A member of the RNA family "mir-399 microRNA precursor family" from Salix brachista, 102 nucleotides long. The match comes from Rfam's covariance-model search (59 bits). Rfam's curators write: mir-399 was identified in both Arabidopsis thaliana and Oryza sativa computationally and was later experimentally verified. mir-399 is thought to target mRNAs coding for a phosphatase transporter. The mature sequence is excised from the 3' arm of the hairpin. For this family Rfam cites "Computational Identification of Plant MicroRNAs and Their Targets, Including a Stress-Induced miRNA" (Jones-Rhoades and Bartel, Mol Cell, 2004). Rfam 15.1 lists 2,396 matches to the family in 221 species. NCBI's taxonomy places the organism under Eukaryota, Streptophytina, fabids, Saliceae, Salix. The family's consensus secondary structure was predicted with PFOLD.
[Rfam]
Nucleotides: 102
Base pairs, nucleotide, nucleotide: 005098006097007096008095011092012091013090014089015088016087017085018084023082024081025080026079029076030075031074032073033072034071035070
Number, partner (000 for none) and nucleotide at each position: 001000u002000a003000a004000g005098g006097a007096a008095u009000a010000a011092c012091a013090g014089g015088g016087c017085a018084u019000c020000c021000u022000c023082c024081u025080c026079c027000u028000c029076u030075g031074g032073c033072a034071a035070g036000c037000a038000g039000a040000a041000c042000a043000u044000g045000g046000a047000a048000a049000u050000a051000a052000a053000u054000g055000c056000c057000u058000g059000a060000a061000u062000a063000u064000u065000u066000c067000u068000g069000u070035u071034u072033u073032g074031c075030c076029a077000a078000a079026g080025g081024a082023g083000a084018a085017u086000u087016g088015c089014c090013c091012u092011g093000c094000c095008a096007u097006u098005c099000g100000a101000u102000u